[Rfam]
RNA sequence: UAAUGAAAAGGCAAACUUAUUGAAAAGUAAGGACGCAAAGCCAAGGGCCUAAGUACAAGUUACAAGGCAGCCGGUUGCAUACA
Numbered sequence: 001u002a003a004u005g006a007a008a009a010g011g012c013a014a015a016c017u018u019a020u021u022g023a024a025a026a027g028u029a030a031g032g033a034c035g036c037a038a039a040g041c042c043a044a045g046g047g048c049c050u051a052a053g054u055a056c057a058a059g060u061u062a063c064a065a066g067g068c069a070g071c072c073g074g075u076u077g078c079a080u081a082c083a
Base pairs, nucleotide, nucleotide: 001083003080004079011036012035016031017030018029019028020027021026034070039076040075041074042073045072046071047068048067049066